wcaG RNA: a 98-nucleotide RNA.
[Rfam]
RNA sequence: AAGUCCUCGUCGGAUGGACAAUAAAUAUGCCGACUGGUGCGGAUGGGGUUACCCCGCCUGUUUCUUAUUUCAGUCAAAAAUAAGUGGCGAGCAUACAA
Numbered sequence: 001a002a003g004u005c006c007u008c009g010u011c012g013g014a015u016g017g018a019c020a021a022u023a024a025a026u027a028u029g030c031c032g033a034c035u036g037g038u039g040c041g042g043a044u045g046g047g048g049u050u051a052c053c054c055c056g057c058c059u060g061u062u063u064c065u066u067a068u069u070u071c072a073g074u075c076a077a078a079a080a081u082a083a084g085u086g087g088c089g090a091g092c093a094u095a096c097a098a
Base pairs, nucleotide, nucleotide: 009034010033011032012031013030016028044056045055046054047053048052058073059072060071064084065083066082067081068080069079

It is one of the family's seed sequences.